[Rfam]
RNA sequence: GCCGUGUGAUGACAUCCCAGUGACUGAACUCUCCACAGUUGGUCCUUGGCGUGUGCAUGAUGCACUGCACUGUUUCAAGACGGGACUGAUGGCAGC
Numbered sequence: 001g002c003c004g005u006g007u008g009a010u011g012a013c014a015u016c017c018c019a020g021u022g023a024c025u026g027a028a029c030u031c032u033c034c035a036c037a038g039u040u041g042g043u044c045c046u047u048g049g050c051g052u053g054u055g056c057a058u059g060a061u062g063c064a065c066u067g068c069a070c071u072g073u074u075u076c077a078a079g080a081c082g083g084g085a086c087u088g089a090u091g092g093c094a095g096c
Stems, first nucleotide, its partner, number of pairs: 001093004
The family of this 96-nucleotide RNA from Centropus unirufus is "Small nucleolar RNA SNORD21".
Gene Ontology terms of the family: RNA processing and nucleolus.
Taxonomically the source falls in Centropus (Eukaryota, Chordata, Dinosauria, Cuculiformes).
The base pairs follow the family's consensus structure, which was predicted with PFOLD.
For this family Rfam cites "U21, a novel small nucleolar RNA with a 13 nt. complementarity to 28S rRNA, is encoded in an intron of ribosomal protein L5 gene in chicken and mammals" (Qu et al., Nucleic Acids Res, 1994).